RNA sequence: UCUGGAAAAUCCCGAAGAGGCCCCAGCUACUCGGGAGGCUGAGCCCGCCGGAUCGCUUGAGCCCAGGAGUUCUGGGCUGCAGUGCGCUAUGCCGAGCGGGCGUCCGCGCUAAGGCCGGCAUCGAUAUGGUGGUCCUGGGGGAGCCCAGAGGCCACCAGGUCGCCUAAGGAGGGGUGAACCGGCCCAGGUCGGAGACGGAGCAGGUCAAAACCCCUGUGCUGGUCAGUAGCGGGAUCGCGCCUGUGAACAGUCCCUGUAGCACAGCCCGGGCAAGAGAGCGGGACCCAGCUUCCU
Numbered sequence: 001u002c003u004g005g006a007a008a009a010u011c012c013c014g015a016a017g018a019g020g021c022c023c024c025a026g027c028u029a030c031u032c033g034g035g036a037g038g039c040u041g042a043g044c045c046c047g048c049c050g051g052a053u054c055g056c057u058u059g060a061g062c063c064c065a066g067g068a069g070u071u072c073u074g075g076g077c078u079g080c081a082g083u084g085c086g087c088u089a090u091g092c093c094g095a096g097c098g099g100g101c102g103u104c105c106g107c108g109c110u111a112a113g114g115c116c117g118g119c120a121u122c123g124a125u126a127u128g129g130u131g132g133u134c135c136u137g138g139g140g141g142a143g144c145c146c147a148g149a150g151g152c153c154a155c156c157a158g159g160u161c162g163c164c165u166a167a168g169g170a171g172g173g174g175u176g177a178a179c180c181g182g183c184c185c186a187g188g189u190c191g192g193a194g195a196c197g198g199a200g201c202a203g204g205u206c207a208a209a210a211c212c213c214c215u216g217u218g219c220u221g222g223u224c225a226g227u228a229g230c231g232g233g234a235u236c237g238c239g240c241c242u243g244u245g246a247a248c249a250g251u252c253c254c255u256g257u258a259g260c261a262c263a264g265c266c267c268g269g270g271c272a273a274g275a276g277a278g279c280g281g282g283a284c285c286c287a288g289c290u291u292c293c294u
Stems, first nucleotide, its partner, number of pairs: 001007001021035003041292003045288001047286001053281006061271004066266002072264003076260007084252001086251003090247001092245001096244008104233002107231005113224009122162004127157008135148005163169002170215006181206004189198003
About this RNA:
The family of this 294-nucleotide RNA sequence from Cuculus canorus is "Metazoan signal recognition particle RNA". Its Rfam clan is "SRP clan". By type it is a non-coding RNA gene. A search with the family's covariance model found it, with a score of 201 bits. The source organism's lineage runs through Eukaryota, Deuterostomia, Saurischia, Coelurosauria and Cuculus.